Purine riboswitch aptamer: a 101-nucleotide RNA from Paenibacillus sp. GSMTC-2017.
[Rfam]
RNA sequence: CAACAAUCGCAUAUACCUUUUCGUAUAAUCUCAAGAAUCGGCUUGAGAGUUUCUACUAGAUCACCGUAAAUGAUCAGGCUACGAGGAGAGUGGAAUGGCGU
Numbered sequence: 001c002a003a004c005a006a007u008c009g010c011a012u013a014u015a016c017c018u019u020u021u022c023g024u025a026u027a028a029u030c031u032c033a034a035g036a037a038u039c040g041g042c043u044u045g046a047g048a049g050u051u052u053c054u055a056c057u058a059g060a061u062c063a064c065c066g067u068a069a070a071u072g073a074u075c076a077g078g079c080u081a082c083g084a085g086g087a088g089a090g091u092g093g094a095a096u097g098g099c100g101u
Base pairs, nucleotide, nucleotide: 018087019086020085021084022083023082024081025080029048030047031046032045033044034043035042057077059075060074061073062072063071